The record is a 109-nucleotide RNA from Microbacterium mangrovi, which matches "TPP riboswitch aptamer (THI element)" in Rfam.
RNA sequence: AACGCAAACCACGGGAGUCCGGUGUGCCGGGCUGAGAGGAAGCAACCCAGCUUCGACCGUCGAACCUGAUCCGGAUCAUGCCGGCGCAGGGAGGAGAGAGAUGAUGCGU
Numbered sequence: 001a002a003c004g005c006a007a008a009c010c011a012c013g014g015g016a017g018u019c020c021g022g023u024g025u026g027c028c029g030g031g032c033u034g035a036g037a038g039g040a041a042g043c044a045a046c047c048c049a050g051c052u053u054c055g056a057c058c059g060u061c062g063a064a065c066c067u068g069a070u071c072c073g074g075a076u077c078a079u080g081c082c083g084g085c086g087c088a089g090g091g092a093g094g095a096g097a098g099a100g101a102u103g104a105u106g107c108g109u
Base pairs, nucleotide, nucleotide: 009094010093011060012059013058014057017032018031019030020029021028039054040053041052042051043050065090066089067088068087071084072083073082074081

It scores 60 bits against the family's covariance model.